[Rfam]
RNA sequence: GGGCAGGCAAAGCCAAGCGGUUACUUCGAAUUGAAUAAACUGAAACAGAAUCCUUUAGUUGCACCCCGUAGGGCAACCCUCCCACGUACCGCUAGCGCCAUCCUGCCUUUUU
Dot-bracket structure: .((((((....((.(.((((....(.((........................................................)).)))))).)).....)))))).....
The family of this 112-nucleotide RNA sequence from Macrostomum lignano is "Vault RNA". From the family's description: This family of RNAs are found as part of the enigmatic vault ribonucleoprotein complex. By type it is a non-coding RNA gene.